[Rfam]
RNA sequence: UAGCCUGAAAUGAUGGUAUGAGUCCAUGUCUCUUCUCUGAGAUGUGUCUUGGAGACAGCUAGGUGCGUUUCUGAUCAGGCUU
Numbered sequence: 001u002a003g004c005c006u007g008a009a010a011u012g013a014u015g016g017u018a019u020g021a022g023u024c025c026a027u028g029u030c031u032c033u034u035c036u037c038u039g040a041g042a043u044g045u046g047u048c049u050u051g052g053a054g055a056c057a058g059c060u061a062g063g064u065g066c067g068u069u070u071c072u073g074a075u076c077a078g079g080c081u082u
Stems, first nucleotide, its partner, number of pairs: 002081004
RNA: Small nucleolar RNA SNORD111
Organism: Chlamydotis macqueenii